This 108-nucleotide RNA from Anaerobacillus arseniciselenatis belongs to the Rfam family "Guanidine-I riboswitch aptamer". This family represents a conserved RNA structure found upstream of the ykkC and yxkD genes in Bacillus subtilis and related genes in other bacteria. The function of this family is unclear although it has been suggested that it may function to switch on efflux pumps and detoxification systems in response to harmful environmental molecules.

RNA sequence: AUAACAGCCUUCUAGGGUUCCGUUUCAAUAUAUUUUGAGAGUCUGUGACCAAGAGUAGGCGGCAUGAACAAGUUUUAUGCUACACGGAGGGAUAAAAGCCCGGGAGAU
Numbered sequence: 001a002u003a004a005c006a007g008c009c010u011u012c013u014a015g016g017g018u019u020c021c022g023u024u025u026c027a028a029u030a031u032a033u034u035u036u037g038a039g040a041g042u043c044u045g046u047g048a049c050c051a052a053g054a055g056u057a058g059g060c061g062g063c064a065u066g067a068a069c070a071a072g073u074u075u076u077a078u079g080c081u082a083c084a085c086g087g088a089g090g091g092a093u094a095a096a097a098g099c100c101c102g103g104g105a106g107a108u
Stems, first nucleotide, its partner, number of pairs: 007060004012055001015050002020047001021045001022043001023040006061081008083103001085106001089101003
On this family, see Barrick et al., Proc Natl Acad Sci U S A 2004: "New RNA motifs suggest an expanded scope for riboswitches in bacterial genetic control". Gene Ontology term of the family: regulation of gene expression. A search with the family's covariance model found it, with a score of 85 bits.